A member of the RNA family "ZMP/ZTP riboswitch aptamer (pfl RNA motif)" from Megasphaera cerevisiae, 79 nucleotides long. It scores 60 bits against the family's covariance model. The family's consensus secondary structure is taken from published work. Lineage of the source: Bacteria > Bacillati > Negativicutes > Veillonellales > Megasphaera cerevisiae.

RNA sequence: AGAGAAGCAUGUAACUGACGGAAGUGGAAUUACCACGGGGAGCAUGGUUCAUGAUACGCCGACCGUCUGGGCAAGGGUU
Numbered sequence: 001a002g003a004g005a006a007g008c009a010u011g012u013a014a015c016u017g018a019c020g021g022a023a024g025u026g027g028a029a030u031u032a033c034c035a036c037g038g039g040g041a042g043c044a045u046g047g048u049u050c051a052u053g054a055u056a057c058g059c060c061g062a063c064c065g066u067c068u069g070g071g072c073a074a075g076g077g078u079u
Stems, first nucleotide, its partner, number of pairs: 004050003008046005015039002017067005024036004058072003
Dot-bracket structure: ...(((.(((((..(([[[[[..((((.....)))).))..))))).))).......(((..]]]]]..))).......